[Rfam]
RNA sequence: AACAUGCUACCUUAGAUCCACCUUUGGGAUGUAUUUGUGCUGUUUUGCUGGUAGAUCUCAGUUCACUCUGGUCAUGGGGUCUCCAGUACAACUCCCAGAUUGCAUUCAGCAACUUUAGCGGUUGUACAGUCAGAGGUGCUUGAGUCAUUGGCGUGUGAGAGCAAUAUACCUGCCUAUUAGCCUGUAAUGUUGUGAUGUGAACGGCCUGUGCUGUUUCUACCAUCAGGACUCGGCUGGUUUGCAGACAUG
Numbered sequence: 001a002a003c004a005u006g007c008u009a010c011c012u013u014a015g016a017u018c019c020a021c022c023u024u025u026g027g028g029a030u031g032u033a034u035u036u037g038u039g040c041u042g043u044u045u046u047g048c049u050g051g052u053a054g055a056u057c058u059c060a061g062u063u064c065a066c067u068c069u070g071g072u073c074a075u076g077g078g079g080u081c082u083c084c085a086g087u088a089c090a091a092c093u094c095c096c097a098g099a100u101u102g103c104a105u106u107c108a109g110c111a112a113c114u115u116u117a118g119c120g121g122u123u124g125u126a127c128a129g130u131c132a133g134a135g136g137u138g139c140u141u142g143a144g145u146c147a148u149u150g151g152c153g154u155g156u157g158a159g160a161g162c163a164a165u166a167u168a169c170c171u172g173c174c175u176a177u178u179a180g181c182c183u184g185u186a187a188u189g190u191u192g193u194g195a196u197g198u199g200a201a202c203g204g205c206c207u208g209u210g211c212u213g214u215u216u217c218u219a220c221c222a223u224c225a226g227g228a229c230u231c232g233g234c235u236g237g238u239u240u241g242c243a244g245a246c247a248u249g
Stems, first nucleotide, its partner, number of pairs: 002156007011144005019138008027107005033100004039094001042092001046088003051083001053082008109125006170244004177237001179235004191227001193225005203218002
RNA: Small nucleolar RNA SNORA53